[Rfam]
Rfam assigns this 145-nucleotide RNA sequence from Burkholderia ambifaria to the family "Group II catalytic intron D1-D4-7".
For this family Rfam cites "Group II introns: structure and catalytic versatility of large natural ribozymes" (Lehmann and Schmidt, Crit Rev Biochem Mol Biol, 2003).
The organism belongs to Burkholderia ambifaria, within Bacteria.
Gene Ontology term of the family: Group II intron splicing.
Group II introns are found in rRNA, tRNA and mRNA of organelles in fungi, plants and protists, and also in mRNA in bacteria.
It is one of the family's seed sequences.
The pairing is the family consensus, mapped onto this sequence.
RNA sequence: CCUGCUGCACAACCAGCAGUUGCCUACCGGGACGUGCGUGACUGGCAACGGUCGGGUAUGAAGCUCCCGGGACAAAGUACCCCUCGGAAGACGUUACAACCGGUGACGGUAUGACGACGCUGCAAGCCGCGAUGCGGCGUGAGGG
Numbered sequence: 001c002c003u004g005c006u007g008c009a010c011a012a013c014c015a016g017c018a019g020u021u022g023c024c025u026a027c028c029g030g031g032a033c034g035u036g037c038g039u040g041a042c043u044g045g046c047a048a049c050g051g052u053c054g055g056g057u058a059u060g061a062a063g064c065u066c067c068c069g070g071g072a073c074a075a076a077g078u079a080c081c082c083c084u085c086g087g088a089a090g091a092c093g094u095u096a097c098a099a100c101c102g103g104u105g106a107c108g109g110u111a112u113g114a115c116g117a118c119g120c121u122g123c124a125a126g127c128c129g130c131g132a133u134g135c136g137g138c139g140u141g142a143g144g145g
Stems, first nucleotide, its partner, number of pairs: 002019006028069005033060005039054006084091002093115004101108002119138006